[Rfam]
RNA sequence: CGGCAAGAUGUGUGUUGUGGGCCCACAAGCUUCGCUUGUUCCCCCAGCAUCUCCCUUGUUCGCCGCGGGCUCAAUAGGCAGUCUUGCUCCGCGAGGCU
Numbered sequence: 001c002g003g004c005a006a007g008a009u010g011u012g013u014g015u016u017g018u019g020g021g022c023c024c025a026c027a028a029g030c031u032u033c034g035c036u037u038g039u040u041c042c043c044c045c046a047g048c049a050u051c052u053c054c055c056u057u058g059u060u061c062g063c064c065g066c067g068g069g070c071u072c073a074a075u076a077g078g079c080a081g082u083c084u085u086g087c088u089c090c091g092c093g094a095g096g097c098u
Stems, first nucleotide, its partner, number of pairs: 002088008012050006019043003025039005054078003062070003
Annotation: This 98-nucleotide RNA from Pseudomonas sp. TAD18 belongs to the Rfam family "traJ-II RNA". By type it is a cis-regulatory element.